The family of this 137-nucleotide sequence from Thryonomys swinderianus is "U4 spliceosomal RNA". Rfam's curators write: U4 small nuclear RNA (U4 snRNA) is a component of the major U2-dependent spliceosome. By type it is a spliceosomal small nuclear RNA. NCBI's taxonomy places the organism under Eukaryota, Chordata, Mammalia, Glires, Thryonomys.
[Rfam]
RNA sequence: AGCUUUGCAUAGUGGUAGUACUGUAGCCAUUGAAGUUUUUCAGAGGUGUGAUUAUUGCUAAUUGAAAACAGGGAAACGAAGCUCCUGUCCUGUUUAAUCUGUAUAAAUGUAAUUUGUACUUGAGCCCCUUUACUGGG
Numbered sequence: 001a002g003c004u005u006u007g008c009a010u011a012g013u014g015g016u017a018g019u020a021c022u023g024u025a026g027c028c029a030u031u032g033a034a035g036u037u038u039u040u041c042a043g044a045g046g047u048g049u050g051a052u053u054a055u056u057g058c059u060a061a062u063u064g065a066a067a068a069c070a071g072g073g074a075a076a077c078g079a080a081g082c083u084c085c086u087g088u089c090c091u092g093u094u095u096a097a098u099c100u101g102u103a104u105a106a107a108u109g110u111a112a113u114u115u116g117u118a119c120u121u122g123a124g125c126c127c128c129u130u131u132a133c134u135g136g137g
Base pairs, nucleotide, nucleotide: 020052022050023049024048026047027046028045035041085116087114088112091109092108093107094106095105097102126137127136128135